The family of this 408-nucleotide RNA sequence from Coemansia interrupta is "Nuclear RNase P".
A search with the family's covariance model found it, with a score of 39 bits.
RNA sequence: UCAGGUAGACGACAGCGCCUGCGCAUAGGCAAUACUUCUUUUCUAUAGAACAAUUUGCUUGGGUUAGAGUCCGGGAGAAGCCAGUUGCCUCUUGCUGAGGGCCCUGCGAACAGCGGGGCGGGAGUUCACCAGAAAUUUCUGUGCCGAGCUUCCUCUUCCGCCUGCUCUGAAUAGAAACACGCAGCGAUGCAUCUUCGGGUGUGUCUGGGCAUGCGACGCUUGGGUAAAAUAAAGCUGAUGCCUGUAUUGCAGUUUCUGUUCGCAUAGAGCAGGUGGAUUGGAGGGACUUGGUGCGAUGGAAGAUUGGCUCCCUGGCGGAAACACUUGAAUGCAGUGCAAUGCGCAGGGUAUUCAGACGUGCUUCUCUGGAGUACGCUUUGGGUAUUUACUCAAUCCGGAUUACGCUGA
Numbered sequence: 001u002c003a004g005g006u007a008g009a010c011g012a013c014a015g016c017g018c019c020u021g022c023g024c025a026u027a028g029g030c031a032a033u034a035c036u037u038c039u040u041u042u043c044u045a046u047a048g049a050a051c052a053a054u055u056u057g058c059u060u061g062g063g064u065u066a067g068a069g070u071c072c073g074g075g076a077g078a079a080g081c082c083a084g085u086u087g088c089c090u091c092u093u094g095c096u097g098a099g100g101g102c103c104c105u106g107c108g109a110a111c112a113g114c115g116g117g118g119c120g121g122g123a124g125u126u127c128a129c130c131a132g133a134a135a136u137u138u139c140u141g142u143g144c145c146g147a148g149c150u151u152c153c154u155c156u157u158c159c160g161c162c163u164g165c166u167c168u169g170a171a172u173a174g175a176a177a178c179a180c181g182c183a184g185c186g187a188u189g190c191a192u193c194u195u196c197g198g199g200u201g202u203g204u205c206u207g208g209g210c211a212u213g214c215g216a217c218g219c220u221u222g223g224g225u226a227a228a229a230u231a232a233a234g235c236u237g238a239u240g241c242c243u244g245u246a247u248u249g250c251a252g253u254u255u256c257u258g259u260u261c262g263c264a265u266a267g268a269g270c271a272g273g274u275g276g277a278u279u280g281g282a283g284g285g286a287c288u289u290g291g292u293g294c295g296a297u298g299g300a301a302g303a304u305u306g307g308c309u310c311c312c313u314g315g316c317g318g319a320a321a322c323a324c325u326u327g328a329a330u331g332c333a334g335u336g337c338a339a340u341g342c343g344c345a346g347g348g349u350a351u352u353c354a355g356a357c358g359u360g361c362u363u364c365u366c367u368g369g370a371g372u373a374c375g376c377u378u379u380g381g382g383u384a385u386u387u388a389c390u391c392a393a394u395c396c397g398g399a400u401u402a403c404g405c406u407g408a
Base pairs, nucleotide, nucleotide: 001408002407003406006347010343011342015060017058018057028044029043031041032040071398072397073396074395075394080316081315082314083313088100089099090098091097102118103117104116105115106114107113120312121311122310123309124308125307126306140295141294142293143292144291145290146289147288148287348385349384350383351382352381353380354379355378356377